[Rfam]
RNA: Plant small nucleolar RNA R71
Nucleotides: 104
Stems, first nucleotide, its partner, number of pairs: 001104001003102002005099001057074002
Number, partner (000 for none) and nucleotide at each position: 001104a002000g003102g004101u005099u006000a007000u008000g009000a010000u011000g012000u013000g014000g015000a016000c017000a018000c019000u020000c021000g022000a023000u024000g025000a026000g027000a028000a029000a030000a031000u032000c033000a034000g035000u036000g037000a038000a039000a040000c041000a042000a043000u044000u045000c046000u047000a048000u049000g050000c051000c052000u053000c054000u055000g056000a057074a058073a059000a060000g061000g062000a063000u064000u065000c066000a067000u068000g069000a070000g071000g072000a073058u074057u075000c076000u077000a078000g079000a080000a081000g082000a083000a084000g085000a086000a087000a088000u089000g090000a091000a092000u093000c094000u095000u096000u097000u098000g099005a100000a101004g102003c103000a104001u